Rfam assigns this 90-nucleotide RNA sequence from Caenorhabditis briggsae to the family "mir-52 microRNA precursor family". Gene Ontology terms of the family: RISC complex and miRNA-mediated post-transcriptional gene silencing. Rfam's curators put it in the seed alignment. On this family, see Lau et al., Science 2001: "An abundant class of tiny RNAs with probable regulatory roles in Caenorhabditis elegans". The family has 5 seed sequences and 11 matches in Rfam 15.1.
[Rfam]
RNA sequence: CCCGCUCUGACAGUCCACCCGUACAUAUGUUUCCGUGCUUGACAUAGAGCUCAAUCACGAUACAAUGAGCGGGUAGCCGGUCAUCGAGUC
Dot-bracket structure: ................((((((..((.(((...((((.((((........)))).))))..)))))..))))))................